RNA sequence: GUCUGUUCUCAGGGCGGGGCGGAAUUCCCCACCGGCGGUAUCGGGCAUGUCUUCAAGCAUCCCGGAGCCCGCGAGCGCCGCUGGCCGCAAGGCCGGCGGGUCAGCAGAUCCGGUGCGAUGCCGGAGCCGACGGUCAAUAGUCCGGAUGAAAGAGGACAGCA
Numbered sequence: 001g002u003c004u005g006u007u008c009u010c011a012g013g014g015c016g017g018g019g020c021g022g023a024a025u026u027c028c029c030c031a032c033c034g035g036c037g038g039u040a041u042c043g044g045g046c047a048u049g050u051c052u053u054c055a056a057g058c059a060u061c062c063c064g065g066a067g068c069c070c071g072c073g074a075g076c077g078c079c080g081c082u083g084g085c086c087g088c089a090a091g092g093c094c095g096g097c098g099g100g101u102c103a104g105c106a107g108a109u110c111c112g113g114u115g116c117g118a119u120g121c122c123g124g125a126g127c128c129g130a131c132g133g134u135c136a137a138u139a140g141u142c143c144g145g146a147u148g149a150a151a152g153a154g155g156a157c158a159g160c161a
Base pairs, nucleotide, nucleotide: 003159004158005157006156007155008154009153010152017029018028019027031141032140033129034128035072036071037070038069067127068126075105076104109125110124111123112122113121131144132143133142
Background
Shown here is a 161-nucleotide RNA sequence from Rhizobium sp. RU20A, a member of the family "FMN riboswitch aptamer (RFN element)". From the family's description: The RFN element is a highly conserved domain that is found frequently in the 5'-untranslated regions of prokaryotic mRNAs that encode for flavin mononucleotide (FMN) biosynthesis and transport proteins. This element is a metabolite-dependent riboswitch that directly binds FMN in the absence of proteins. The match comes from Rfam's covariance-model search (102 bits). NCBI's taxonomy places the organism under Bacteria, Pseudomonadati, Hyphomicrobiales, Rhizobiaceae, Rhizobium.